[Rfam]
RNA sequence: AUAAUGAUACUCCCUUAUAGCUAAACGAAGCUCCGUUCUUUCCGGGGCUUCCAAGUCCGAGCGUUAAAAGCGUCGCAGGCAAUAGGUAGGGCCGCGUGAGAACCACGCGGGGGUGAGAUUCCCGUGG
Dot-bracket structure: ...........(((((((...................................................................))))))(((.(((.....))).)))(((.......))))...
Annotation:
This 127-nucleotide RNA belongs to the Rfam family "pemK RNA". The family's RNA type in Rfam is cis-regulatory element. It is one of the family's seed sequences.